[Rfam]
The family of this 140-nucleotide RNA is "Small nucleolar RNA SNORA12". The family has 23 seed sequences and 571 matches in Rfam 15.1. By type it is an H/ACA-box small nucleolar RNA. It is one of the family's seed sequences.
RNA sequence: UGUGGUGGUUUCUUUGUUUGGCAGAUCUGUAAUUGUAUCAGAGCGGCCUGAAACUACCACAGAGAUCAAAAAGGAGGGAGGCUGUGCUGAGAACGUUUUCAGGCUCUCAGUUCUCAGCUUUUUAUUCAACUCCUAUAGAA
Dot-bracket structure: .(((((((...........(((.(.((((.........)))).).))).....)))))))............((((........................(((.................)))......)))).......
Its family is annotated with nucleolus and RNA processing in the Gene Ontology.